[Rfam]
RNA sequence: GUCUGUCCAGUGCCCUUUUUAUGUUGUACUACUAGUGAUCAUACACAAAGCAGUGCAAUGUUAAAAGGGCAUUGGCCAGCAA
Numbered sequence: 001g002u003c004u005g006u007c008c009a010g011u012g013c014c015c016u017u018u019u020u021a022u023g024u025u026g027u028a029c030u031a032c033u034a035g036u037g038a039u040c041a042u043a044c045a046c047a048a049a050g051c052a053g054u055g056c057a058a059u060g061u062u063a064a065a066a067g068g069g070c071a072u073u074g075g076c077c078a079g080c081a082a
Stems, first nucleotide, its partner, number of pairs: 002081001005077001007075004012070008022060009
This 82-nucleotide RNA from Chauna torquata belongs to the Rfam family "mir-130 microRNA precursor family".
It scores 54 bits against the family's covariance model.
The literature on the family includes a 2003 paper in Dev Cell by Houbaviy et al., "Embryonic stem cell-specific MicroRNAs".
The organism belongs to Chauna, within Eukaryota.
Its family is annotated with RISC complex and miRNA-mediated post-transcriptional gene silencing in the Gene Ontology.